The record is a 150-nucleotide RNA sequence from Prolemur simus, which matches "U12 minor spliceosomal RNA" in Rfam. Rfam classes the family as a spliceosomal small nuclear RNA. The family is grouped with related families in Rfam's "U2 clan". NCBI's taxonomy places the organism under Eukaryota, Metazoa, Dipnotetrapodomorpha, Primates, Prolemur.
RNA sequence: AUGCCUUAAACUUAUGAGUAAGGAAGAUAACGAUCUGGGGUGAUGCCCAAAUCCUCACUGCUAAUGUGAGAUGAAUUUUUGAGUGGGUAAAGGUCACCCCUAGGGUGACUCACCUAUUUUGUGGGAUGCCUGGGAGUUGUGAUCUGUCCA
Numbered sequence: 001a002u003g004c005c006u007u008a009a010a011c012u013u014a015u016g017a018g019u020a021a022g023g024a025a026g027a028u029a030a031c032g033a034u035c036u037g038g039g040g041u042g043a044u045g046c047c048c049a050a051a052u053c054c055u056c057a058c059u060g061c062u063a064a065u066g067u068g069a070g071a072u073g074a075a076u077u078u079u080u081g082a083g084u085g086g087g088u089a090a091a092g093g094u095c096a097c098c099c100c101u102a103g104g105g106u107g108a109c110u111c112a113c114c115u116a117u118u119u120u121g122u123g124g125g126a127u128g129c130c131u132g133g134g135a136g137u138u139g140u141g142a143u144c145u146g147u148c149c150a
Base pairs, nucleotide, nucleotide: 004023005022006021007020008019032053033052034051036049037048038047039046054070055069056068057067058066084150085149086148087147088146091145092144093143094142095141096140097139100134101133103131104130105129106128107127109125110124111123112122113121